This 138-nucleotide RNA sequence from Stegastes partitus belongs to the Rfam family "Small nucleolar RNA SNORA29". A search with the family's covariance model found it, with a score of 61 bits. The source organism's lineage runs through Eukaryota, Bilateria, Clupeocephala, Euacanthomorphacea and Stegastes. ACA29 is a member of the H/ACA class of snoRNA that guide the sites of modification of uridines to pseudouridines. By type it is an H/ACA-box small nucleolar RNA.
[Rfam]
RNA sequence: AAUCCCGUUUCAGUACCUUCCAUUCGUAUAACGAUGAAUGGAGGGCUAUGCUAAUGGGACAGAACAACACUGUCAUGGUCUGAAGGUGUGGCUAGCUGCCUGUGCGCCCCGCUCAAUAAAAUGACAGAACAUGUCUAC
Numbered sequence: 001a002a003u004c005c006c007g008u009u010u011c012a013g014u015a016c017c018u019u020c021c022a023u024u025c026g027u028a029u030a031a032c033g034a035u036g037a038a039u040g041g042a043g044g045g046c047u048a049u050g051c052u053a054a055u056g057g058g059a060c061a062g063a064a065c066a067a068c069a070c071u072g073u074c075a076u077g078g079u080c081u082g083a084a085g086g087u088g089u090g091g092c093u094a095g096c097u098g099c100c101u102g103u104g105c106g107c108c109c110c111g112c113u114c115a116a117u118a119a120a121a122u123g124a125c126a127g128a129a130c131a132u133g134u135c136u137a138c
Stems, first nucleotide, its partner, number of pairs: 004058004016045004072125004090113003